[Rfam]
RNA sequence: CGAUGAAGACCUCUUCGCACCUGUACGCAAGCGCCGCCCGGAUGGCCUCGGGCAUGACUUCGCGUGCUCGCCGACCGGAAUCCGCACACUAGCUGGGUCCCCGGAGGUCUUGUCCU
Numbered sequence: 001c002g003a004u005g006a007a008g009a010c011c012u013c014u015u016c017g018c019a020c021c022u023g024u025a026c027g028c029a030a031g032c033g034c035c036g037c038c039c040g041g042a043u044g045g046c047c048u049c050g051g052g053c054a055u056g057a058c059u060u061c062g063c064g065u066g067c068u069c070g071c072c073g074a075c076c077g078g079a080a081u082c083c084g085c086a087c088a089c090u091a092g093c094u095g096g097g098u099c100c101c102c103g104g105a106g107g108u109c110u111u112g113u114c115c116u
Base pairs, nucleotide, nucleotide: 031113032112033111035107037106038104039103040076041075043073044072045071046070051068052067053066054065055064056063077102078101082096083095084094085092

This 116-nucleotide RNA from Pseudoxanthomonas winnipegensis belongs to the Rfam family "Xanthomonadaceae sRNA Xoo5". It scores 67 bits against the family's covariance model. The source organism's lineage runs through Bacteria, Gammaproteobacteria, Lysobacterales, Lysobacteraceae and Pseudoxanthomonas. Rfam classes the family as a small RNA. A reference for the family is Liang et al. (2011), "Identification and functional characterization of small non-coding RNAs in Xanthomonas oryzae pathovar oryzae", BMC Genomics. Pairs were carried over by alignment from the consensus structure, which was predicted with RNAalifold.